[Rfam]
RNA sequence: AGCGCUGCCGGCGCUAUAUAAGGGAAAGCGAUUAUAAUAGUUUCGCCUACGGUUUUGAAUAGCCGACGCUAUAAAAUAUUCAUGGUUUACUGGUACAUACCUAUUUUAAAGUACAGUAUUCCAUAAAUGGUAGAAGAUGUUACGAAGCCAGUACCGCCGGCGAUUGAAAGCGCGGACGAAUGAGUAACAAAGGGUAAGGUUAAAUCGCCGAAGUUAGAUUUCGGAUAGUUGCGUAAGCGACGGGAUUACAUAGGUACAUCGGUAACGAUGUAAUUAGUAGGGCAUUGGAUUUAGACGCUAAAUAAUAUGUACGGUAGUAGAAUACCGGCUAUAAAUA
Numbered sequence: 001a002g003c004g005c006u007g008c009c010g011g012c013g014c015u016a017u018a019u020a021a022g023g024g025a026a027a028g029c030g031a032u033u034a035u036a037a038u039a040g041u042u043u044c045g046c047c048u049a050c051g052g053u054u055u056u057g058a059a060u061a062g063c064c065g066a067c068g069c070u071a072u073a074a075a076a077u078a079u080u081c082a083u084g085g086u087u088u089a090c091u092g093g094u095a096c097a098u099a100c101c102u103a104u105u106u107u108a109a110a111g112u113a114c115a116g117u118a119u120u121c122c123a124u125a126a127a128u129g130g131u132a133g134a135a136g137a138u139g140u141u142a143c144g145a146a147g148c149c150a151g152u153a154c155c156g157c158c159g160g161c162g163a164u165u166g167a168a169a170g171c172g173c174g175g176a177c178g179a180a181u182g183a184g185u186a187a188c189a190a191a192g193g194g195u196a197a198g199g200u201u202a203a204a205u206c207g208c209c210g211a212a213g214u215u216a217g218a219u220u221u222c223g224g225a226u227a228g229u230u231g232c233g234u235a236a237g238c239g240a241c242g243g244g245a246u247u248a249c250a251u252a253g254g255u256a257c258a259u260c261g262g263u264a265a266c267g268a269u270g271u272a273a274u275u276a277g278u279a280g281g282g283c284a285u286u287g288g289a290u291u292u293a294g295a296c297g298c299u300a301a302a303u304a305a306u307a308u309g310u311a312c313g314g315u316a317g318u319a320g321a322a323u324a325c326c327g328g329c330u331a332u333a334a335a336u337a
Stems, first nucleotide, its partner, number of pairs: 002014005028046004050065004083123003088118005094113003138189006151177002154175004208224005228241005255272007274301005312327005
A member of the RNA family "throat-1 RNA", 337 nucleotides long. It is annotated as a small RNA.